RNA sequence: CUGCAACUGCUGUGUGCGUCCGCUCAGGCAAGCGUGCCCGAACCGAUGCUAUAAACACGGGGACAUUCCUCCGGUAAAUCCGGUCAUGCCUUUACAGGACGACCAACAUCAUCCGGACGUCCCCACCUAGUGGGCUCCUGGAACGUGGCUCACCUCGCCUGGACGGCACAGCGGUUAUUUU
Numbered sequence: 001c002u003g004c005a006a007c008u009g010c011u012g013u014g015u016g017c018g019u020c021c022g023c024u025c026a027g028g029c030a031a032g033c034g035u036g037c038c039c040g041a042a043c044c045g046a047u048g049c050u051a052u053a054a055a056c057a058c059g060g061g062g063a064c065a066u067u068c069c070u071c072c073g074g075u076a077a078a079u080c081c082g083g084u085c086a087u088g089c090c091u092u093u094a095c096a097g098g099a100c101g102a103c104c105a106a107c108a109u110c111a112u113c114c115g116g117a118c119g120u121c122c123c124c125a126c127c128u129a130g131u132g133g134g135c136u137c138c139u140g141g142a143a144c145g146u147g148g149c150u151c152a153c154c155u156c157g158c159c160u161g162g163a164c165g166g167c168a169c170a171g172c173g174g175u176u177a178u179u180u181u
Base pairs, nucleotide, nucleotide: 003178005176006175007174008173009172010171011170012169013168014167015166017165018164019163036149037148038147039145040144043141044140059124060123061122063120064119066117067116068115073113074112075111077109084102085101089098090097
6S / SsrS RNA: a 181-nucleotide RNA from Luteolibacter ambystomatis. Taxonomically the source falls in Luteolibacter (Bacteria, Pseudomonadati, Verrucomicrobiales, Verrucomicrobiaceae). Pairs were carried over by alignment from the consensus structure, which is taken from published work. The match comes from Rfam's covariance-model search (51 bits). The family's RNA type in Rfam is non-coding RNA gene.